Overview:
A member of the RNA family "mir-87 microRNA precursor family" from Schmidtea mediterranea, 78 nucleotides long. Pairs were carried over by alignment from the consensus structure, which was predicted with RNAalifold.

[Rfam]
RNA sequence: UAUUUCAACACUUGGUAAUUUGCUCAAACCAAUGUCCGAAAAGGAGUCUGGUGAGCAAAGUUUCAAGUGUAUAUAUGU
Numbered sequence: 001u002a003u004u005u006c007a008a009c010a011c012u013u014g015g016u017a018a019u020u021u022g023c024u025c026a027a028a029c030c031a032a033u034g035u036c037c038g039a040a041a042a043g044g045a046g047u048c049u050g051g052u053g054a055g056c057a058a059a060g061u062u063u064c065a066a067g068u069g070u071a072u073a074u075a076u077g078u
Stems, first nucleotide, its partner, number of pairs: 002076002005073001009069007017061001019059003023055004029051003

Gene Ontology terms of the family: miRNA-mediated post-transcriptional gene silencing and RISC complex.